[Rfam]
RNA: Bacterial RNase P class A
Organism: Yimella sp. RIT 621
RNA sequence: UGAGCCGGCCAGGCGGCCGCGUCGGGAGUUCGCUCCCGCCGAGGAACGUCCGGGCUCCGAAGAGCAGGGUGGUGGCUAACGGCCACCCGGGGUGACCCGCGGGACAGUGCCACAGAAAGCAGACCGCCUGCGCUCGCGCAGGUAAGGGUGAAACGGUGGUGUAAGAGACCACCAGCGCCCCAGGUGACUGGGGCGGCUAGGUAAACCCCACCCGGAGCAAGGCCAGACAGCAUGCGCCCGAGGGCUGCUCGCCCGAGCAUGCGGGUAGGCCGCUGGAGGCGACUGGCAACAGUCGUCCUAGAUGGAUGGUCGCCCAAUGACUGAACCCGGCGUAUCGGCCGGCUCAUCCC
Numbered sequence: 001u002g003a004g005c006c007g008g009c010c011a012g013g014c015g016g017c018c019g020c021g022u023c024g025g026g027a028g029u030u031c032g033c034u035c036c037c038g039c040c041g042a043g044g045a046a047c048g049u050c051c052g053g054g055c056u057c058c059g060a061a062g063a064g065c066a067g068g069g070u071g072g073u074g075g076c077u078a079a080c081g082g083c084c085a086c087c088c089g090g091g092g093u094g095a096c097c098c099g100c101g102g103g104a105c106a107g108u109g110c111c112a113c114a115g116a117a118a119g120c121a122g123a124c125c126g127c128c129u130g131c132g133c134u135c136g137c138g139c140a141g142g143u144a145a146g147g148g149u150g151a152a153a154c155g156g157u158g159g160u161g162u163a164a165g166a167g168a169c170c171a172c173c174a175g176c177g178c179c180c181c182a183g184g185u186g187a188c189u190g191g192g193g194c195g196g197c198u199a200g201g202u203a204a205a206c207c208c209c210a211c212c213c214g215g216a217g218c219a220a221g222g223c224c225a226g227a228c229a230g231c232a233u234g235c236g237c238c239c240g241a242g243g244g245c246u247g248c249u250c251g252c253c254c255g256a257g258c259a260u261g262c263g264g265g266u267a268g269g270c271c272g273c274u275g276g277a278g279g280c281g282a283c284u285g286g287c288a289a290c291a292g293u294c295g296u297c298c299u300a301g302a303u304g305g306a307u308g309g310u311c312g313c314c315c316a317a318u319g320a321c322u323g324a325a326c327c328c329g330g331c332g333u334a335u336c337g338g339c340c341g342g343c344u345c346a347u348c349c350c
Stems, first nucleotide, its partner, number of pairs: 001346010011335001012314007020041002023038006046333003050330005055217004062250004067213005072086005087101001088099004102208002107206002109202003124147002126143007155173006175197001176195008221271004230262006242254004278297008